GA-cis RNA: a 90-nucleotide RNA sequence from Hespellia stercorisuis. The match comes from Rfam's covariance-model search (67 bits). Pairs were carried over by alignment from the consensus structure, which is taken from published work. NCBI's taxonomy places the organism under Bacteria, Bacillota, Lachnospirales, Lachnospiraceae, Hespellia stercorisuis.
[Rfam]
RNA sequence: AUGAAGAGGAGACUAUACGAAACGUAGUUUCGUAUUUGGAAUGUCUCCGAUGACCUGUCGCGGAGCGCAUGCGAGAGGGCAUUACAUGUU
Numbered sequence: 001a002u003g004a005a006g007a008g009g010a011g012a013c014u015a016u017a018c019g020a021a022a023c024g025u026a027g028u029u030u031c032g033u034a035u036u037u038g039g040a041a042u043g044u045c046u047c048c049g050a051u052g053a054c055c056u057g058u059c060g061c062g063g064a065g066c067g068c069a070u071g072c073g074a075g076a077g078g079g080c081a082u083u084a085c086a087u088g089u090u
Stems, first nucleotide, its partner, number of pairs: 008048006017033006057080003065072002